[Rfam]
RNA sequence: ACCAUCCUUUUCUUGGGGUUGUGCCACUUUCCAAUGAGCACAUAGUGAGGGCAGUGCUGCUAACACCUAAACAACACACCCUGUAGUCCCAGCUAUUCGGGAGGCUGAGGCAGGAGAA
Numbered sequence: 001a002c003c004a005u006c007c008u009u010u011u012c013u014u015g016g017g018g019u020u021g022u023g024c025c026a027c028u029u030u031c032c033a034a035u036g037a038g039c040a041c042a043u044a045g046u047g048a049g050g051g052c053a054g055u056g057c058u059g060c061u062a063a064c065a066c067c068u069a070a071a072c073a074a075c076a077c078a079c080c081c082u083g084u085a086g087u088c089c090c091a092g093c094u095a096u097u098c099g100g101g102a103g104g105c106u107g108a109g110g111c112a113g114g115a116g117a118a
Stems, first nucleotide, its partner, number of pairs: 006018004021060003026055003030051003038046002081116002084113001088109001090107004
Annotation
U4atac minor spliceosomal RNA: a 118-nucleotide sequence from Callithrix jacchus. The literature on the family includes a 2008 paper in J Mol Evol by Marz et al., "Evolution of spliceosomal snRNA genes in metazoan animals". Rfam links the family to the GO terms mRNA 5'-splice site recognition, U4atac snRNP and pre-mRNA 5'-splice site binding. The organism belongs to Callithrix, within Eukaryota. Rfam classes the family as a spliceosomal small nuclear RNA. U4atac is an essential component of the minor U12-type spliceosome complex which is required for removal of the rarer class of eukaryotic introns (AT-AC, U12-type). Rfam 15.1 lists 1,648 matches to the family in 818 species.